Description:
The family of this 132-nucleotide RNA sequence from Vombatus ursinus is "Small nucleolar RNA SNORA3/SNORA45 family". Rfam classes the family as an H/ACA-box small nucleolar RNA. The source organism's lineage runs through Eukaryota, Craniata, Gnathostomata, Metatheria and Vombatus. About the family: The members of this family belong to the H/ACA class of snoRNAs which are thought to guide the sites of modification of uridines to pseudouridines. This family includes mouse snoMBI-28 and human homologues ACA3 (SNORA3) and ACA3-2 (SNORA45). Both ACA3 and ACA3-2 share the same host gene. MBI-28, ACA3 and ACA3-2 are all predicted to guide the pseudouridylation of residues in 28S rRNA. Its Rfam clan is "SNORA3 clan".
[Rfam]
Nucleotides: 132
Stems, first nucleotide, its partner, number of pairs: 002059005007053003012048002015046006023038004070124006083113005091105004
Number, partner (000 for none) and nucleotide at each position: 001000c002059c003058c004057g005056a006055g007053a008052c009051u010000a011000g012048a013047g014000u015046c016045a017044c018043a019042u020041c021000c022000u023038g024037a025036c026035a027000a028000u029000a030000a031000c032000u033000g034000u035026u036025g037024u038023c039000u040000u041020g042019g043018u044017g045016u046015g047013c048012u049000a050000g051009a052008g053007u054000c055006c056005u057004c058003g059002g060000a061000g062000a063000a064000a065000a066000u067000c068000u069000u070124c071123u072122g073121a074120c075119c076000a077000u078000u079000a080000u081000u082000c083113a084112c085111u086110g087109g088000c089000c090000u091105u092104g093103g094102c095000a096000u097000c098000u099000g100000g101000u102094g103093c104092c105091a106000c107000a108000g109087u110086c111085a112084g113083u114000c115000a116000c117000c118000a119075g120074g121073u122072c123071a124070g125000u126000u127000a128000c129000a130000u131000u132000g